[Rfam]
RNA sequence: GAUACAAAUGAUGAUACCUUUGCCUUGAACUCUCUCUCUGAUCAUGUGAUGGAAAAUGCGAGGUCUGAUGCAAUC
Numbered sequence: 001g002a003u004a005c006a007a008a009u010g011a012u013g014a015u016a017c018c019u020u021u022g023c024c025u026u027g028a029a030c031u032c033u034c035u036c037u038c039u040g041a042u043c044a045u046g047u048g049a050u051g052g053a054a055a056a057u058g059c060g061a062g063g064u065c066u067g068a069u070g071c072a073a074u075c
Stems, first nucleotide, its partner, number of pairs: 001075002003072001005070002
Small nucleolar RNA SNORD81: a 75-nucleotide sequence from Varanus komodoensis. It scores 50 bits against the family's covariance model. The base pairs follow the family's consensus structure, which was predicted with PFOLD. The family is grouped with related families in Rfam's "SNORD26 clan". A reference for the family is Smith and Steitz (1998), "Classification of gas5 as a multi-small-nucleolar-RNA (snoRNA) host gene and a member of the 5'-terminal oligopyrimidine gene family reveals common features of snoRNA host genes", Mol Cell Biol.